A member of the RNA family "mir-1684 microRNA precursor family" from Aquarana catesbeiana, 100 nucleotides long. Gene Ontology terms of the family: RISC complex and miRNA-mediated post-transcriptional gene silencing.
RNA sequence: UGGCAUGGAGGGAGGCUCCCGCUCUUCUCUUCAUCUUCUUCUCUUCAUCAAGAUGAAGAGAAGAAGAUGAAGAGAAGAGCGGGAGCCUCCCUCCAUGCCA
Numbered sequence: 001u002g003g004c005a006u007g008g009a010g011g012g013a014g015g016c017u018c019c020c021g022c023u024c025u026u027c028u029c030u031u032c033a034u035c036u037u038c039u040u041c042u043c044u045u046c047a048u049c050a051a052g053a054u055g056a057a058g059a060g061a062a063g064a065a066g067a068u069g070a071a072g073a074g075a076a077g078a079g080c081g082g083g084a085g086c087c088u089c090c091c092u093c094c095a096u097g098c099c100a
Stems, first nucleotide, its partner, number of pairs: 002099002006095002009092013023078010034067002037064011